[Rfam]
RNA sequence: UUUAUGGGAUACACCAAGUUCAGUUUUGUCAGAUGUCCAAGCAUCACUGGGCUUUGUUUAUCUCAUAAG
Numbered sequence: 001u002u003u004a005u006g007g008g009a010u011a012c013a014c015c016a017a018g019u020u021c022a023g024u025u026u027u028g029u030c031a032g033a034u035g036u037c038c039a040a041g042c043a044u045c046a047c048u049g050g051g052c053u054u055u056g057u058u059u060a061u062c063u064c065a066u067a068a069g
Stems, first nucleotide, its partner, number of pairs: 002068010013057002017053008027043003
A member of the RNA family "mir-318 microRNA precursor family" from Drosophila grimshawi, 69 nucleotides long. Taxonomically the source falls in Hawaiian Drosophila (Eukaryota, Protostomia, Allotriocarida, Panorpida). The sequence is in the family's curated seed alignment. A reference for the family is Clark et al. (2007), "Evolution of genes and genomes on the Drosophila phylogeny", Nature.